This 411-nucleotide sequence from Roseivivax sp. THAF197b belongs to the Rfam family "Bacterial RNase P class A". The base pairs follow the family's consensus structure, which is taken from published work.
[Rfam]
RNA sequence: GCGGAGGGCCGGACGGCCGCUUUGUCCCAUACCCAAGGGCCGGGGCAGAGAGGAAAGUCCGGACUCCCUGAGGCAACGGUGCCGGGUAACGCCCGGGCAGGGCAACCUGACGGAGAGCGCCACAGAAAACAGACCACCGCCGGGAAACCGGCGGCCAGGGUGAAACGGUGGGGUAAGAGCCCACCGGGGGACGGGCAACCGGACCCGCAUGGCAAGCCCCACCGGGAGCAAUGCCAAAUAGGGACCCCGCGCGGGCUGAUCCUUUCGGGGAUAUCGCCGCAGGGCCGCCUCAGCCCGAGGGGUCCGGGUUGGCAGCUUGAGCCGUUCCGCGAGGGGCGGCCCAGAGGAAUGGUCGUCUGGGACGGGUUCGCCCGUCCGACACAGAAUCCGGCUUACAGGCCCUCCGCGCAU
Numbered sequence: 001g002c003g004g005a006g007g008g009c010c011g012g013a014c015g016g017c018c019g020c021u022u023u024g025u026c027c028c029a030u031a032c033c034c035a036a037g038g039g040c041c042g043g044g045g046c047a048g049a050g051a052g053g054a055a056a057g058u059c060c061g062g063a064c065u066c067c068c069u070g071a072g073g074c075a076a077c078g079g080u081g082c083c084g085g086g087u088a089a090c091g092c093c094c095g096g097g098c099a100g101g102g103c104a105a106c107c108u109g110a111c112g113g114a115g116a117g118c119g120c121c122a123c124a125g126a127a128a129a130c131a132g133a134c135c136a137c138c139g140c141c142g143g144g145a146a147a148c149c150g151g152c153g154g155c156c157a158g159g160g161u162g163a164a165a166c167g168g169u170g171g172g173g174u175a176a177g178a179g180c181c182c183a184c185c186g187g188g189g190g191a192c193g194g195g196c197a198a199c200c201g202g203a204c205c206c207g208c209a210u211g212g213c214a215a216g217c218c219c220c221a222c223c224g225g226g227a228g229c230a231a232u233g234c235c236a237a238a239u240a241g242g243g244a245c246c247c248c249g250c251g252c253g254g255g256c257u258g259a260u261c262c263u264u265u266c267g268g269g270g271a272u273a274u275c276g277c278c279g280c281a282g283g284g285c286c287g288c289c290u291c292a293g294c295c296c297g298a299g300g301g302g303u304c305c306g307g308g309u310u311g312g313c314a315g316c317u318u319g320a321g322c323c324g325u326u327c328c329g330c331g332a333g334g335g336g337c338g339g340c341c342c343a344g345a346g347g348a349a350u351g352g353u354c355g356u357c358u359g360g361g362a363c364g365g366g367u368u369c370g371c372c373c374g375u376c377c378g379a380c381a382c383a384g385a386a387u388c389c390g391g392c393u394u395a396c397a398g399g400c401c402c403u404c405c406g407c408g409c410a411u
Base pairs, nucleotide, nucleotide: 001407002406003405004404005403006402007401008400009399010398011396012357013356014355015354016353017352018351020050021049022048023047024046025045026044027043028042055394056393057392059391060390061389062388063387064228065227066226067225072291073290077224078223079222080221081220082096083095084094085093086092097111098109099108100107101106112219113218117217118216119213120212121211134159135158137154138153139152140151141150142149143148167185168184169183170182171181172180186208187206188205189204192201193200194199232314233313234312235311242305243304244303245302246301247300282296283295284294285293321340322339323338324337325336326335327334328333